RNA: TPP riboswitch aptamer (THI element)
Organism: Mycolicibacterium anyangense
RNA sequence: UACCAACCACACGGGAGUGCACACCCAAGUGCGCUGAGAGGACGGCUGUUCGGUGCCGUCGACCGUAUGAACCUGUCCGGGUAAUGCCGGCGUAGGGAGUGAAUGAUGACUGAUG
Numbered sequence: 001u002a003c004c005a006a007c008c009a010c011a012c013g014g015g016a017g018u019g020c021a022c023a024c025c026c027a028a029g030u031g032c033g034c035u036g037a038g039a040g041g042a043c044g045g046c047u048g049u050u051c052g053g054u055g056c057c058g059u060c061g062a063c064c065g066u067a068u069g070a071a072c073c074u075g076u077c078c079g080g081g082u083a084a085u086g087c088c089g090g091c092g093u094a095g096g097g098a099g100u101g102a103a104u105g106a107u108g109a110c111u112g113a114u115g
Stems, first nucleotide, its partner, number of pairs: 008101003011066004017034005041060005072096004077090004